[Rfam]
RNA sequence: UUAACUCAACUUUGUAUGGAGUUGGAACGUUUACCUGCGUUGGCCGCUAGGAACGCUGUUACAACUGCAUACAAAGUUGAGUAA
Numbered sequence: 001u002u003a004a005c006u007c008a009a010c011u012u013u014g015u016a017u018g019g020a021g022u023u024g025g026a027a028c029g030u031u032u033a034c035c036u037g038c039g040u041u042g043g044c045c046g047c048u049a050g051g052a053a054c055g056c057u058g059u060u061a062c063a064a065c066u067g068c069a070u071a072c073a074a075a076g077u078u079g080a081g082u083a084a
Base pairs, nucleotide, nucleotide: 008078009077010076011075012074013073014072015071016070018068020066021065022064023063024062026060027059028058029057035051036050039047040046

The family of this 84-nucleotide RNA sequence from Bombyx mori is "mir-2807 microRNA precursor family". The organism belongs to Bombyx, within Eukaryota. A reference for the family is Liu et al. (2010), "MicroRNAs of Bombyx mori identified by Solexa sequencing", BMC Genomics.